[Rfam]
Nucleotides: 389
Base pairs, nucleotide, nucleotide: 001385002384003383004382005381006380007379008378009377012332013331014330015329016328017327018326020041021040023038024037025036026035027034028033046372047371048370050369051368052367053366054365055237056236057235058234062269063268064267065266067233068232069231070230071229072086073085074084075083076082087101088099089098090097091096102228103227107226108225109222110221124167125166126163127162128161130159131158132157133156134155175193176192177191178190179189180188195217196215197214198213199212200211201210202209241289242288243287244286250280251279252278253277254276255275261273262272263271264270296315297314298313299312300311301310302309303308
Number, partner (000 for none) and nucleotide at each position: 001385u002384g003383g004382g005381u006380c007379g008378g009377c010000a011000a012332g013331a014330c015329g016328g017327u018326c019000g020041c021040g022000u023038u024037a025036u026035c027034c028033c029000c030000u031000c032000g033028g034027g035026g036025g037024u038023a039000c040021c041020g042000a043000g044000g045000a046372a047371c048370g049000u050369c051368c052367g053366g054365g055237c056236u057235c058234c059000a060000c061000a062269g063268a064267g065266c066000a067233g068232g069231g070230c071229g072086g073085u074084g075083g076082g077000u078000a079000a080000u081000u082076c083075c084074c085073a086072c087101c088099c089098g090097g091096g092000g093000u094000a095000a096091c097090c098089c099088g100000c101087g102228a103227g104000a105000a106000a107226g108225u109222g110221c111000a112000a113000c114000a115000g116000a117000a118000a119000g120000c121000a122000g123000a124167c125166c126163g127162c128161c129000a130159c131158c132157g133156g134155u135000u136000g137000g138000g139000c140000c141000g142000a143000u144000u145000u146000a147000u148000c149000g150000g151000c152000u153000g154000g155134a156133c157132u158131g159130g160000g161128g162127g163126u164000a165000a166125g167124g168000g169000u170000g171000a172000a173000a174000c175193g176192g177191u178190g179189g180188u181000g182000u183000a184000a185000g186000a187000g188180a189179c190178c191177a192176c193175c194000a195217g196215c197214g198213g199212c200211c201210c202209g203000c204000g205000u206000g207000a208000u209202c210201g211200g212199g213198u214197c215196g216000g217195c218000u219000g220000g221110g222109u223000a224000a225108a226107c227103c228102u229071c230070g231069c232068c233067c234058g235057g236056a237055g238000c239000a240000a241289g242288g243287u244286c245000g246000a247000a248000c249000a250280g251279a252278a253277a254276a255275c256000g257000u258000u259000a260000c261273g262272g263271g264270c265000g266065g267064c268063u269062c270264g271263u272262c273261c274000a275255g276254u277253u278252u279251u280250c281000g282000g283000g284000u285000a286244g287243a288242c289241c290000g291000c292000u293000a294000g295000a296315g297314g298313u299312g300311u301310g302309c303308g304000g305000c306000a307000a308303c309302g310301u311300a312299c313298a314297u315296c316000g317000u318000a319000g320000a321000u322000a323000g324000a325000u326018g327017g328016c329015c330014g331013u332012c333000g334000a335000u336000g337000a338000u339000g340000c341000a342000u343000c344000u345000u346000c347000g348000g349000a350000u351000g352000g353000g354000u355000c356000g357000g358000g359000a360000c361000a362000g363000a364000a365054c366053c367052c368051g369050g370048c371047g372046u373000a374000a375000c376000a377009g378008c379007c380006g381005g382004c383003c384002c385001a386000u387000u388000c389000a
Shown here is a 389-nucleotide RNA sequence from Frigoribacterium sp. CG_9.8, a member of the family "Bacterial RNase P class A".
Rfam classes the family as a ribozyme.
The base pairs follow the family's consensus structure, which is taken from published work.
For this family Rfam cites "Identification and characterization of small RNAs in Yersinia pestis" (Beauregard et al., RNA Biol, 2013).
It scores 298 bits against the family's covariance model.